[Rfam]
RNA sequence: CUAGGGCAGCAAUGCCUAUAACAUUUGUAGCAUAAACAGUGUAGUUUGGUAUUAAUAGGGUAUGAGAGUUCGAUGAGACAGUUUGCUAAGAGUGUGCCCACUCUAAACAAUGAGUAACUAUGGUAACCAAAUAGCAAUAUUGGUUGGCAGGGUUUUAAAGAGUUGCGAUGCCUCAGGCUGGAAACAGAACAGGGAAACAGCGCCGCUUAUUGUGGUGGAGGGAUUACAUACUCAUUAACUGUCGAGCUUAUCGCUCUAUUAUAUCGAUCUGACACUGCUU
Dot-bracket structure: ((.(((((....)))))......((........))..)).(((((.(((.(((.(((..(((.(((....(((((((..((((.(....(((((((.((.(((((.(((((((((((((.((.(((((.((((....))))))))).)).)))).....(.((((...(.(((....(((....)))....))).).)))).).)))))))))..)))))))....))))))).).))))......)))))))))))))..))).))))).).)))))..
Metazoan signal recognition particle RNA: a 280-nucleotide sequence from Ichthyophthirius multifiliis. The signal recognition particle (SRP) is a universally conserved ribonucleoprotein. Taxonomically the source falls in Ichthyophthirius (Eukaryota, Alveolata, Intramacronucleata, Hymenostomatida). The literature on the family includes a 2002 paper in Curr Opin Struct Biol by Wild et al., "Towards the structure of the mammalian signal recognition particle". It scores 90 bits against the family's covariance model. The base pairs follow the family's consensus structure, which is taken from published work.